The family of this 87-nucleotide RNA sequence from Ureibacillus sinduriensis is "c-di-GMP-I riboswitch aptamer".
RNA sequence: AACUGAAAAAGGCAAACUUACUGAAAGGUGAGGACGCAAAACUACGAGUCUAAAAUCCUCCUGGAUAAUGAUAGUCGGGUCGCCAAA
Numbered sequence: 001a002a003c004u005g006a007a008a009a010a011g012g013c014a015a016a017c018u019u020a021c022u023g024a025a026a027g028g029u030g031a032g033g034a035c036g037c038a039a040a041a042c043u044a045c046g047a048g049u050c051u052a053a054a055a056u057c058c059u060c061c062u063g064g065a066u067a068a069u070g071a072u073a074g075u076c077g078g079g080u081c082g083c084c085a086a087a
Stems, first nucleotide, its partner, number of pairs: 012037002017032006041080003045077003048072003055066004